[Rfam]
RNA sequence: CAACAAAUGAAUACGGUACCUCAUAUAUUUCAUGAGAAUAUGGCUCGAAGUUUCUACCCAGCACCGUAAAUGCUGGACUAUGAGGGGAGAUGAAUCAUUG
Dot-bracket structure: ..................(((((((...(((..(((.......))))))........((((((.......))))))..)))))))...............
RNA: Purine riboswitch aptamer